mraW RNA: a 105-nucleotide RNA from Corynebacterium efficiens. It is annotated as a cis-regulatory element. The sequence is in the family's curated seed alignment. The family's consensus secondary structure is taken from published work.
[Rfam]
RNA sequence: GCAUGGAGCGCGUGUAAGGACUCUGCUCGAGGAGUCAGCUCUGGUGUACUUCCCCGACAUCAGAUCGACACCUCGAGUGGGGCCCUGUACGCACUCCGUGAUUGA
Numbered sequence: 001g002c003a004u005g006g007a008g009c010g011c012g013u014g015u016a017a018g019g020a021c022u023c024u025g026c027u028c029g030a031g032g033a034g035u036c037a038g039c040u041c042u043g044g045u046g047u048a049c050u051u052c053c054c055c056g057a058c059a060u061c062a063g064a065u066c067g068a069c070a071c072c073u074c075g076a077g078u079g080g081g082g083c084c085c086u087g088u089a090c091g092c093a094c095u096c097c098g099u100g101a102u103u104g105a
Base pairs, nucleotide, nucleotide: 010092011091012090013089014088015087016086018085019084021082022081023080024079025078026077027076028075029074030073034071035068036067038066040064041063042062043061044060045059046058047057